[Rfam]
RNA: Purine riboswitch aptamer
Organism: Orenia marismortui
Nucleotides: 102
Base pairs, nucleotide, nucleotide: 018088019087020086021085022084023083024082025081029049032046033045034044035043058078059077060076061075062074063073064072
Number, partner (000 for none) and nucleotide at each position: 001000u002000a003000a004000u005000a006000a007000a008000u009000u010000u011000u012000g013000a014000c015000a016000u017000u018088g019087u020086u021085u022084c023083g024082u025081a026000u027000a028000a029049u030000u031000u032046c033045g034044a035043g036000a037000a038000u039000a040000g041000g042000g043035c044034u045033c046032g047000u048000u049029a050000g051000u052000u053000u054000c055000u056000a057000c058078c059077a060076g061075c062074u063073a064072g065000c066000c067000a068000u069000a070000a071000a072064c073063u074062a075061g076060c077059u078058g079000a080000c081025u082024a083023c084022g085021a086020g087019a088018u089000a090000u091000a092000g093000u094000g095000u096000c097000a098000u099000u100000g101000g102000u